The record is an 86-nucleotide RNA sequence from Acipenser ruthenus, which matches "Selenocysteine transfer RNA" in Rfam.
RNA sequence: GCCCGGAUGAGCCUCGGUGGUCCGGGGUGCAGGCUUCAAACCUGGAGCUGCUUAGCGGCAGAGCGGCUCAAUUCCUUCUUGCGGGG
Numbered sequence: 001g002c003c004c005g006g007a008u009g010a011g012c013c014u015c016g017g018u019g020g021u022c023c024g025g026g027g028u029g030c031a032g033g034c035u036u037c038a039a040a041c042c043u044g045g046a047g048c049u050g051c052u053u054a055g056c057g058g059c060a061g062a063g064c065g066g067c068u069c070a071a072u073u074c075c076u077u078c079u080u081g082c083g084g085g086g
Stems, first nucleotide, its partner, number of pairs: 002085004007080001009078001012027006028046001030044004048061005063077001065075002
The organism belongs to Acipenser, within Eukaryota.